[Rfam]
RNA: TD-1 RNA
Organism: Treponema parvum
RNA sequence: AAAACACUGUCGAGUUUGCCUUUCGGCAAACGUCGCUGAUUAUAACUGUGCGCAAAGAGCGCACGAAUUCAACAGUCUCCAAAAUUGAUAUUUUGUUCGACUGUUGAAUUUUAAG
Numbered sequence: 001a002a003a004a005c006a007c008u009g010u011c012g013a014g015u016u017u018g019c020c021u022u023u024c025g026g027c028a029a030a031c032g033u034c035g036c037u038g039a040u041u042a043u044a045a046c047u048g049u050g051c052g053c054a055a056a057g058a059g060c061g062c063a064c065g066a067a068u069u070c071a072a073c074a075g076u077c078u079c080c081a082a083a084a085u086u087g088a089u090a091u092u093u094u095g096u097u098c099g100a101c102u103g104u105u106g107a108a109u110u111u112u113a114a115g
Stems, first nucleotide, its partner, number of pairs: 012034002014031007048064006067109011080095006